[Rfam]
RNA sequence: CGACCCUGUGCGGGAGAGACCUCACGCAGCCGGCGUGGGGCGCCGAAGGGGCAACCUCCCCGGAACCUCUCAGGCAAAAGGACCGCUCGGGCGAG
Numbered sequence: 001c002g003a004c005c006c007u008g009u010g011c012g013g014g015a016g017a018g019a020c021c022u023c024a025c026g027c028a029g030c031c032g033g034c035g036u037g038g039g040g041c042g043c044c045g046a047a048g049g050g051g052c053a054a055c056c057u058c059c060c061c062g063g064a065a066c067c068u069c070u071c072a073g074g075c076a077a078a079a080g081g082a083c084c085g086c087u088c089g090g091g092c093g094a095g
Stems, first nucleotide, its partner, number of pairs: 006090003010086004020040006042075003045071002049069003055063002
RNA: Glycine riboswitch aptamer